The family of this 138-nucleotide sequence from Alteromonas pelagimontana is "Gammaprotebacteria rimP leader". The literature on the family includes a 2010 paper in Genome Biol by Naville and Gautheret, "Premature terminator analysis sheds light on a hidden world of bacterial transcriptional attenuation". Lineage of the source: Bacteria > Pseudomonadati > Gammaproteobacteria > Alteromonadales > Alteromonas. The match comes from Rfam's covariance-model search (50 bits). It is annotated as a cis-regulatory leader.
RNA sequence: ACUGUCUCUUGACAGUGAUGGGUUCAGAUUUGUAUAAAAGCCCCGCUAGUCCGGGGCUUUUUGUUGUACUUGAAUCGGAAUUUAUGCUGACUGCAAGAGUCUUAGUAAAAGGUAGUUUGGGCUUUAAGCCCUUUUUUC
Numbered sequence: 001a002c003u004g005u006c007u008c009u010u011g012a013c014a015g016u017g018a019u020g021g022g023u024u025c026a027g028a029u030u031u032g033u034a035u036a037a038a039a040g041c042c043c044c045g046c047u048a049g050u051c052c053g054g055g056g057c058u059u060u061u062u063g064u065u066g067u068a069c070u071u072g073a074a075u076c077g078g079a080a081u082u083u084a085u086g087c088u089g090a091c092u093g094c095a096a097g098a099g100u101c102u103u104a105g106u107a108a109a110a111g112g113u114a115g116u117u118u119g120g121g122c123u124u125u126a127a128g129c130c131c132u133u134u135u136u137u138c
Stems, first nucleotide, its partner, number of pairs: 037060009119131004